[Rfam]
RNA sequence: ACGUUUCCAUUGAACGGAUGAGUAAGAAGUCCGCUCCUAUAGCAGAGAGCCGGGAUUGGUGAGAACCGGCAUAGGGUCGCUUCCGAAUAUGGUCCGGGAGGAAUCGCCGUCGAGCCGUCUGUCGCAGACCGGUCAGACCGCGACGCACGCCAGCGUUACGGGGGCAAGUCCGGAUCGGACUUGACUGAGCCCUGCCAUCUUCAUGCGGCGGGGAAAAUUGGGUGGUACCGCGUGAGCUUUCGACUCUCGUCCCAUGU
Numbered sequence: 001a002c003g004u005u006u007c008c009a010u011u012g013a014a015c016g017g018a019u020g021a022g023u024a025a026g027a028a029g030u031c032c033g034c035u036c037c038u039a040u041a042g043c044a045g046a047g048a049g050c051c052g053g054g055a056u057u058g059g060u061g062a063g064a065a066c067c068g069g070c071a072u073a074g075g076g077u078c079g080c081u082u083c084c085g086a087a088u089a090u091g092g093u094c095c096g097g098g099a100g101g102a103a104u105c106g107c108c109g110u111c112g113a114g115c116c117g118u119c120u121g122u123c124g125c126a127g128a129c130c131g132g133u134c135a136g137a138c139c140g141c142g143a144c145g146c147a148c149g150c151c152a153g154c155g156u157u158a159c160g161g162g163g164g165c166a167a168g169u170c171c172g173g174a175u176c177g178g179a180c181u182u183g184a185c186u187g188a189g190c191c192c193u194g195c196c197a198u199c200u201u202c203a204u205g206c207g208g209c210g211g212g213g214a215a216a217a218u219u220g221g222g223u224g225g226u227a228c229c230g231c232g233u234g235a236g237c238u239u240u241c242g243a244c245u246c247u248c249g250u251c252c253c254a255u256g257u
Stems, first nucleotide, its partner, number of pairs: 007101002015096004026083005038073003049070005105142003109138003144155003190213007219254004230250003234246003
Shown here is a 257-nucleotide RNA sequence from Paenibacillus hemerocallicola, a member of the family "T-box leader". A search with the family's covariance model found it, with a score of 97 bits. Rfam classes the family as a cis-regulatory leader. The organism belongs to Paenibacillus, within Bacteria. Uncharged tRNA acts as the effector for transcription antitermination of genes in the T-box leader family.